[Rfam]
RNA sequence: GCUAGGAUGGUCUAGUGGUAUGACGUUCGCCUCACACGCGAAAGGUCCCGGGUUCGAGACCCGGUCUUAGUA
Numbered sequence: 001g002c003u004a005g006g007a008u009g010g011u012c013u014a015g016u017g018g019u020a021u022g023a024c025g026u027u028c029g030c031c032u033c034a035c036a037c038g039c040g041a042a043a044g045g046u047c048c049c050g051g052g053u054u055c056g057a058g059a060c061c062c063g064g065u066c067u068u069a070g071u072a
Stems, first nucleotide, its partner, number of pairs: 001071007010024003026042005048064005
A member of the RNA family "tRNA" from Sporormia fimetaria, 72 nucleotides long.
Taxonomically the source falls in Sporormia fimetaria (Eukaryota, Fungi, leotiomyceta, Dothideomycetes).
The family's RNA type in Rfam is transfer RNA.
The match comes from Rfam's covariance-model search (62 bits).